[Rfam]
RNA sequence: CUGCAUUCAGGCGAUGGGGUUCGCCGAAACCUAUUUGGUAUAAACCGCACGUUAUAAACGUUUGCUGAUAACUCCUACAAAUUG
Dot-bracket structure: .........[[[[..((((((]]]].....................(((.............)))....)))))).........
RNA: Fluoride riboswitch aptamer (crcB RNA motif)
Organism: Sphaerochaeta globosa